[Rfam]
RNA sequence: UUUUGGUCCCUUAACUUAUUUUUUGGUUUCGUUUUGGUCCCUUAACUUAUUUUUUGGUUUCCUUUUGGUCCCUUAACUCUAAUACAUUCAUCCUAACAUAAAGGACCAAAGUAGUUGACGGAGGAAAAGUUAAGGGACCAAAACGAAACCAAAAAGUAAGUUAAAGGACCAAAACGAAACUUUUAAUAGUUAAGGGACCAAAACGAAACCUAAAAGUAAGUUAAGGGACCAAAACGAAACUUUUAAUA
Numbered sequence: 001u002u003u004u005g006g007u008c009c010c011u012u013a014a015c016u017u018a019u020u021u022u023u024u025g026g027u028u029u030c031g032u033u034u035u036g037g038u039c040c041c042u043u044a045a046c047u048u049a050u051u052u053u054u055u056g057g058u059u060u061c062c063u064u065u066u067g068g069u070c071c072c073u074u075a076a077c078u079c080u081a082a083u084a085c086a087u088u089c090a091u092c093c094u095a096a097c098a099u100a101a102a103g104g105a106c107c108a109a110a111g112u113a114g115u116u117g118a119c120g121g122a123g124g125a126a127a128a129g130u131u132a133a134g135g136g137a138c139c140a141a142a143a144c145g146a147a148a149c150c151a152a153a154a155a156g157u158a159a160g161u162u163a164a165a166g167g168a169c170c171a172a173a174a175c176g177a178a179a180c181u182u183u184u185a186a187u188a189g190u191u192a193a194g195g196g197a198c199c200a201a202a203a204c205g206a207a208a209c210c211u212a213a214a215a216g217u218a219a220g221u222u223a224a225g226g227g228a229c230c231a232a233a234a235c236g237a238a239a240c241u242u243u244u245a246a247u248a
Stems, first nucleotide, its partner, number of pairs: 001234003005230003009226013023212001025210013
The record is a 248-nucleotide RNA sequence from Medicago truncatula, which matches "MIR2655 microRNA precursor family" in Rfam. Gene Ontology terms of the family: RISC complex and miRNA-mediated post-transcriptional gene silencing. The family has 25 seed sequences and 892 matches in Rfam 15.1.